Rfam assigns this 237-nucleotide sequence from Monosporascus sp. GIB2 to the family "Small nucleolar RNA snR191". It scores 62 bits against the family's covariance model. The family is grouped with related families in Rfam's "SNORA74 clan".

RNA sequence: CCCCAAUGCUUCCUGUCAGGACACUUUCUACAUCCUUCGAUGGAAGAUCGUCUGUUACAUCAUUGGGAGAUUGAAAUUUCGAGCUUGCUGUUCCUACGUCGUUUUGACUAGGGACUGGCCGGGUCCCGUUUUGGGGCACUGUCGUUAGCUCGAGUUUGUCUCAUUUUGAGUUGAAAUCCACCUCUGCCCGUUCCGGGUGGCCAGGUGGUGGAUUUCUUAGUAAUGAUUCAUACAUCU
Numbered sequence: 001c002c003c004c005a006a007u008g009c010u011u012c013c014u015g016u017c018a019g020g021a022c023a024c025u026u027u028c029u030a031c032a033u034c035c036u037u038c039g040a041u042g043g044a045a046g047a048u049c050g051u052c053u054g055u056u057a058c059a060u061c062a063u064u065g066g067g068a069g070a071u072u073g074a075a076a077u078u079u080c081g082a083g084c085u086u087g088c089u090g091u092u093c094c095u096a097c098g099u100c101g102u103u104u105u106g107a108c109u110a111g112g113g114a115c116u117g118g119c120c121g122g123g124u125c126c127c128g129u130u131u132u133g134g135g136g137c138a139c140u141g142u143c144g145u146u147a148g149c150u151c152g153a154g155u156u157u158g159u160c161u162c163a164u165u166u167u168g169a170g171u172u173g174a175a176a177u178c179c180a181c182c183u184c185u186g187c188c189c190g191u192u193c194c195g196g197g198u199g200g201c202c203a204g205g206u207g208g209u210g211g212a213u214u215u216c217u218u219a220g221u222a223a224u225g226a227u228u229c230a231u232a233c234a235u236c237u
Stems, first nucleotide, its partner, number of pairs: 003066005019053004024046005079153006090115007098108003123137006157230002161226004173216004179210004184200007